[Rfam]
RNA sequence: AUUCCUUAAACUAUGAGUAAGGAAAAUAAUGAUUUGGGGUGACGUCCAAAUCCUCACUGCUAACUGAGAUGAAUUUUUGAGCUGGCAAAGGUUGCCCCUAAGGUAACCCGCCUACUUUGCAGGAUGUCUAGGAAUCAUGAUCUGCCUG
Number, nucleotide and partner (000 for none) at each position: 001a000002u000003u000004c022005c021006u020007u019008a018009a000010a000011c000012u000013a000014u000015g000016a000017g000018u008019a007020a006021g005022g004023a000024a000025a000026a000027u000028a000029a000030u000031g052032a051033u050034u049035u048036g047037g046038g045039g000040u000041g000042a000043c000044g000045u038046c037047c036048a035049a034050a033051u032052c031053c068054u067055c066056a065057c000058u000059g000060c000061u000062a000063a000064c000065u056066g055067a054068g053069a000070u000071g000072a000073a000074u000075u000076u000077u000078u000079g000080a000081g000082c148083u000084g146085g145086c144087a000088a000089a143090g142091g141092u140093u139094g138095c000096c000097c000098c132099u131100a000101a129102g128103g127104u126105a125106a000107c123108c122109c000110g120111c119112c000113u000114a000115c000116u000117u000118u000119g111120c110121a000122g108123g107124a000125u105126g104127u103128c102129u101130a000131g099132g098133a000134a000135u000136c000137a000138u094139g093140a092141u091142c090143u089144g086145c085146c084147u000148g082
RNA: U12 minor spliceosomal RNA
Organism: Carlito syrichta